[Rfam]
Shown here is a 296-nucleotide RNA from Hymenochirus boettgeri, a member of the family "Metazoan signal recognition particle RNA".
RNA sequence: GCCGGGUGCGGUGGCGUGUGCCUGUAAUCCAGCUACUUGGAGGCUUAGACUGUCGGAUGGCUUGAGUCCAGGAGUUCUGGGCUGCAUUGGGCUAUUCGAUCGGGUGUCCGCACUAAGUUCGGUAUCAAUAUGGUGUUCCUGGGGGAGCUCGGGACCACCAGGUUGCUCUAAGGAGGGGUGAACCGGCCCAGGUCGGAGACGGAGCAGGUCAAAGCCCCCGUGCCGAUCAGUAGUGGGAUUGCGCCUGUGAAUAGCCGGUGCAGAGCAGCGGGUAACACAGUGAGACACAGUCUCUU
Numbered sequence: 001g002c003c004g005g006g007u008g009c010g011g012u013g014g015c016g017u018g019u020g021c022c023u024g025u026a027a028u029c030c031a032g033c034u035a036c037u038u039g040g041a042g043g044c045u046u047a048g049a050c051u052g053u054c055g056g057a058u059g060g061c062u063u064g065a066g067u068c069c070a071g072g073a074g075u076u077c078u079g080g081g082c083u084g085c086a087u088u089g090g091g092c093u094a095u096u097c098g099a100u101c102g103g104g105u106g107u108c109c110g111c112a113c114u115a116a117g118u119u120c121g122g123u124a125u126c127a128a129u130a131u132g133g134u135g136u137u138c139c140u141g142g143g144g145g146a147g148c149u150c151g152g153g154a155c156c157a158c159c160a161g162g163u164u165g166c167u168c169u170a171a172g173g174a175g176g177g178g179u180g181a182a183c184c185g186g187c188c189c190a191g192g193u194c195g196g197a198g199a200c201g202g203a204g205c206a207g208g209u210c211a212a213a214g215c216c217c218c219c220g221u222g223c224c225g226a227u228c229a230g231u232a233g234u235g236g237g238a239u240u241g242c243g244c245c246u247g248u249g250a251a252u253a254g255c256c257g258g259u260g261c262a263g264a265g266c267a268g269c270g271g272g273u274a275a276c277a278c279a280g281u282g283a284g285a286c287a288c289a290g291u292c293u294c295u296u
Base pairs, nucleotide, nucleotide: 001044002043003042004023005022006021007020008019009018010017028041029040030039047293048292049291050290051289052288053287058283060281061280062279066273067272068271069270072269077268078267079266082263083262084261085260086259087258088257089256091255092254093253094252095251096250097249101247102246103245104244105243106242107241108237109236111235112234113233114232115231117228119226120225121224122223123222124221125220126165127164128163129162131160132159133158134157135156137154138153139152140151141150142149143148167173168172175218176217177216178215179214185210186209187208188207193202194201195200
The family's consensus secondary structure is taken from published work. Rfam classes the family as a non-coding RNA gene. Rfam's curators write: The signal recognition particle (SRP) is a universally conserved ribonucleoprotein. It is involved in the co-translational targeting of proteins to membranes. The eukaryotic SRP consists of a 300-nucleotide 7S RNA and six proteins: SRPs 72, 68, 54, 19, 14, and 9. Rfam links the family to the GO terms signal recognition particle, endoplasmic reticulum targeting and SRP-dependent cotranslational protein targeting to membrane, signal sequence recognition. The literature on the family includes a 2002 paper in Curr Opin Struct Biol by Wild et al., "Towards the structure of the mammalian signal recognition particle".